[Rfam]
RNA sequence: AAUUAUUAACGGUUCACUUAUUUAUAUUCUAUGCAUAAAAAAACCUGCCCGCAGGCAGGUUUUUUUAUUAU
Number, nucleotide and partner (000 for none) at each position: 001a000002a000003u000004u000005a022006u000007u020008a019009a018010c000011g000012g000013u000014u000015c000016a000017c000018u009019u008020a007021u000022u005023u000024a000025u000026a000027u000028u000029c000030u000031a000032u000033g000034c000035a000036u000037a000038a000039a064040a063041a062042a061043a060044c059045c058046u057047g056048c055049c000050c000051g000052c000053a000054g000055g048056c047057a046058g045059g044060u043061u042062u041063u040064u039065u000066u000067a000068u000069u000070a000071u000

About this RNA: Rfam assigns this 71-nucleotide sequence from Klebsiella michiganensis to the family "Enterobacterial sRNA STnc370". The family's RNA type in Rfam is small RNA. A search with the family's covariance model found it, with a score of 70 bits. Taxonomically the source falls in Klebsiella (Bacteria, Pseudomonadota, Enterobacterales, Enterobacteriaceae).